[Rfam]
RNA sequence: CCCGCCGAGGAGCGCUGCAACCUGUUCAUUGAUUAGGUGAAAUCAAUCAGUGACACAGGCUAGGCUCGGCGGAGCGCGGUGGUUUUCAUUCAACGGCGCUCACUCAAU
Numbered sequence: 001c002c003c004g005c006c007g008a009g010g011a012g013c014g015c016u017g018c019a020a021c022c023u024g025u026u027c028a029u030u031g032a033u034u035a036g037g038u039g040a041a042a043u044c045a046a047u048c049a050g051u052g053a054c055a056c057a058g059g060c061u062a063g064g065c066u067c068g069g070c071g072g073a074g075c076g077c078g079g080u081g082g083u084u085u086u087c088a089u090u091c092a093a094c095g096g097c098g099c100u101c102a103c104u105c106a107a108u
Stems, first nucleotide, its partner, number of pairs: 002072007021059005
RNA: SAH (S-adenosyl-L-homocysteine) riboswitch aptamer